[Rfam]
Nucleotides: 075
Base pairs, nucleotide, nucleotide: 004072005071006070007069008068009067011065012064013063014062015061016060017059018058019057022054023053024052025051026050027049030046031045
Number, partner (000 for none) and nucleotide at each position: 001000u002000g003000a004072g005071u006070g007069a008068u009067u010000u011065a012064g013063g014062u015061a016060g017059u018058u019057u020000c021000a022054u023053g024052u025051u026050g027049u028000u029000a030046g031045g032000c033000u034000u035000u036000a037000u038000u039000g040000u041000a042000c043000a044000u045031c046030c047000c048000c049027a050026c051025a052024a053023c054022a055000a056000g057019a058018a059017a060016c061015u062014g063013u064012c065011u066000u067009g068008a069007u070006u071005g072004c073000c074000u075000c